[Rfam]
RNA sequence: UAAGAUUCAUAAGCGCCAGAGCUUAAGUGCCAGAUCGGAACGCCGGAGGACGCAAUCGCGUCUAACGGGUAUGUGCAACUUAAGCUGACGAGGUGGAGGUGUUCGAAAUAUUCGGCGGGGACCUCCCGGUAUUGCAUCAAACCGUAAGCGAAUUUCGGAAAACGGACAGGCGACUGGCCGCACAAACGGAUUCGCGGAUGCUCA
Numbered sequence: 001u002a003a004g005a006u007u008c009a010u011a012a013g014c015g016c017c018a019g020a021g022c023u024u025a026a027g028u029g030c031c032a033g034a035u036c037g038g039a040a041c042g043c044c045g046g047a048g049g050a051c052g053c054a055a056u057c058g059c060g061u062c063u064a065a066c067g068g069g070u071a072u073g074u075g076c077a078a079c080u081u082a083a084g085c086u087g088a089c090g091a092g093g094u095g096g097a098g099g100u101g102u103u104c105g106a107a108a109u110a111u112u113c114g115g116c117g118g119g120g121a122c123c124u125c126c127c128g129g130u131a132u133u134g135c136a137u138c139a140a141a142c143c144g145u146a147a148g149c150g151a152a153u154u155u156c157g158g159a160a161a162a163c164g165g166a167c168a169g170g171c172g173a174c175u176g177g178c179c180g181c182a183c184a185a186a187c188g189g190a191u192u193c194g195c196g197g198a199u200g201c202u203c204a
Base pairs, nucleotide, nucleotide: 020086021085022084023083024082025081026080027079095126096125097124098123099122103115104114105113106112127144128143129142130141132139149194150193151192152191153190154189155188163180164179165178167176168175169174